[Rfam]
RNA sequence: UCAGCAUCUCGGGAUCAUGGUAGAAGCGAUCUCGUUCUGAUCCCUGUCUUGCUUUUAACAAAGCUUGUGAAUUCUACC
Number, nucleotide and partner (000 for none) at each position: 001u000002c000003a000004g000005c000006a000007u000008c000009u000010c000011g044012g043013g042014a041015u040016c039017a000018u000019g078020g077021u076022a075023g074024a073025a072026g038027c000028g036029a000030u000031c000032u000033c000034g000035u000036u028037c000038u026039g016040a015041u014042c013043c012044c011045u000046g000047u000048c067049u000050u000051g064052c063053u062054u061055u060056u000057a000058a000059c000060a055061a054062a053063g052064c051065u000066u000067g048068u000069g000070a000071a000072u025073u024074c023075u022076a021077c020078c019
Mammalian CPEB3 ribozyme: a 78-nucleotide RNA from Muraenolepis orangiensis. Lineage of the source: Eukaryota > Craniata > Vertebrata > Acanthomorphata > Muraenolepis.